[Rfam]
RNA sequence: AUUUAAAGUAAAGCGCCUGAGCUUGAGCUUGGUCGGAAAGAAGCUUAAGUUGACGAGGGACAGGGUUUAUCGAAAUUUCGGCGGAUGCCCUGCGGUGUAUUCACCACCGAUAACGGAUCUACAAAACUACUAAGUAAUUGGUAGAACAAAGGGGUCUAGGUGAAAGAGU
Numbered sequence: 001a002u003u004u005a006a007a008g009u010a011a012a013g014c015g016c017c018u019g020a021g022c023u024u025g026a027g028c029u030u031g032g033u034c035g036g037a038a039a040g041a042a043g044c045u046u047a048a049g050u051u052g053a054c055g056a057g058g059g060a061c062a063g064g065g066u067u068u069a070u071c072g073a074a075a076u077u078u079c080g081g082c083g084g085a086u087g088c089c090c091u092g093c094g095g096u097g098u099a100u101u102c103a104c105c106a107c108c109g110a111u112a113a114c115g116g117a118u119c120u121a122c123a124a125a126a127c128u129a130c131u132a133a134g135u136a137a138u139u140g141g142u143a144g145a146a147c148a149a150a151g152g153g154g155u156c157u158a159g160g161u162g163a164a165a166g167a168g169u
Stems, first nucleotide, its partner, number of pairs: 020051008029042001061092005070081004093109005114159001115157005127144007